Rfam assigns this 100-nucleotide RNA to the family "mir-395 microRNA precursor family".
Pairs were carried over by alignment from the consensus structure, which was predicted with PFOLD.
It scores 63 bits against the family's covariance model.
mir-395 was identified in both Arabidopsis thaliana and Oryza sativa computationally and was later experimentally verified. mir-395 is thought to target mRNAs coding for ATP sulphurylases. The mature sequence is excised from the 3' arm of the hairpin.

RNA sequence: UUUUCUACUGGAGUUGCCCUCGAUCGCUUCAUUGAGUGUUUUAUGUUCUAUAAAAACGAACGACAUUCAAUGAAGUGUUUGGGGGAACUCCUGUGGUAAA
Numbered sequence: 001u002u003u004u005c006u007a008c009u010g011g012a013g014u015u016g017c018c019c020u021c022g023a024u025c026g027c028u029u030c031a032u033u034g035a036g037u038g039u040u041u042u043a044u045g046u047u048c049u050a051u052a053a054a055a056a057c058g059a060a061c062g063a064c065a066u067u068c069a070a071u072g073a074a075g076u077g078u079u080u081g082g083g084g085g086a087a088c089u090c091c092u093g094u095g096g097u098a099a100a
Stems, first nucleotide, its partner, number of pairs: 005096004011090005017084004022080002025077012